[Rfam]
RNA sequence: CCUGAAAACGGCGAUGGGACCCGCCGGGGCAUAAGAGCCCGAACCGCAGACCUGCUGAUAGUUCCUGUUCGUUG
Numbered sequence: 001c002c003u004g005a006a007a008a009c010g011g012c013g014a015u016g017g018g019a020c021c022c023g024c025c026g027g028g029g030c031a032u033a034a035g036a037g038c039c040c041g042a043a044c045c046g047c048a049g050a051c052c053u054g055c056u057g058a059u060a061g062u063u064c065c066u067g068u069u070c071g072u073u074g
Stems, first nucleotide, its partner, number of pairs: 010025004016065005046055003